[Rfam]
RNA sequence: ACGCAUCUUCAGUUUGUUCGUGAAUCUGACGCCAUCAAGGCCGUCCAUUUUUCAAUCAUAGCAUCAAUGGUGUUAGAUUAACGCACAAACUCGUGAUCUGUCU
Numbered sequence: 001a002c003g004c005a006u007c008u009u010c011a012g013u014u015u016g017u018u019c020g021u022g023a024a025u026c027u028g029a030c031g032c033c034a035u036c037a038a039g040g041c042c043g044u045c046c047a048u049u050u051u052u053c054a055a056u057c058a059u060a061g062c063a064u065c066a067a068u069g070g071u072g073u074u075a076g077a078u079u080a081a082c083g084c085a086c087a088a089a090c091u092c093g094u095g096a097u098c099u100g101u102c103u
Base pairs, nucleotide, nucleotide: 001101002100003099005097006096007095011091012090013089014088015087016086017085019083020082021081023079024078025077026076028074029073030072032070033069043062

Rfam assigns this 103-nucleotide sequence from Theobroma umbraticum to the family "MIR403 microRNA precursor family". It scores 77 bits against the family's covariance model. Its family is annotated with miRNA-mediated post-transcriptional gene silencing and RISC complex in the Gene Ontology. Taxonomically the source falls in Theobroma (Eukaryota, Streptophyta, Euphyllophyta, Malvaceae). The family has 13 seed sequences and 215 matches in Rfam 15.1. On this family, see Mica et al., BMC Genomics 2009: "High throughput approaches reveal splicing of primary microRNA transcripts and tissue specific expression of mature microRNAs in Vitis vinifera".